[Rfam]
Description: The record is a 178-nucleotide RNA sequence from Gemmiger sp. An194, which matches "Lysine riboswitch aptamer" in Rfam. A reference for the family is Mandal et al. (2003), "Riboswitches Control Fundamental Biochemical Pathways in Bacillus subtilis and Other Bacteria", Cell. Taxonomically the source falls in Gemmiger (Bacteria, Bacillati, Clostridia, Eubacteriales).

RNA sequence: CGCUGUGAUAGAGGCGCGGUGUUUAAGAGUAGCGCGCGGCAUUCGGGGCAGACCCCCGCCGCACCGAAAGGAAACACCGCCGAAGGAAGCGAACCCGGUCUGGGGUGCGCUUGCCUGGGCUGGCGGAGAAGAUCCGCCGGACUGUCACGAAGUUUUUUCGUGAAGCGCUAUCCAAGGG
Number, nucleotide and partner (000 for none) at each position: 001c000002g000003c000004u000005g000006u000007g172008a171009u170010a169011g168012a000013g000014g000015c000016g080017c079018g078019g077020u076021g075022u074023u073024u072025a000026a000027g000028a000029g000030u000031a000032g000033c000034g064035c000036g062037c061038g060039g059040c058041a000042u000043u000044c000045g000046g000047g000048g000049c000050a000051g000052a000053c000054c000055c000056c000057c000058g040059c039060c038061g037062c036063a000064c034065c000066g000067a000068a000069a000070g000071g000072a024073a023074a022075c021076a020077c019078c018079g017080c016081c000082g000083a000084a116085g115086g114087a112088a111089g110090c109091g108092a000093a106094c105095c104096c103097g000098g000099u000100c000101u000102g000103g096104g095105g094106u093107g000108c091109g090110c089111u088112u087113g000114c086115c085116u084117g143118g142119g000120c140121u139122g138123g137124c136125g135126g134127a133128g000129a000130a000131g000132a000133u127134c126135c125136g124137c123138c122139g121140g120141a000142c118143u117144g000145u163146c162147a161148c160149g159150a158151a157152g000153u000154u000155u000156u000157u151158u150159c149160g148161u147162g146163a145164a000165g000166c000167g000168c011169u010170a009171u008172c007173c000174a000175a000176g000177g000178g000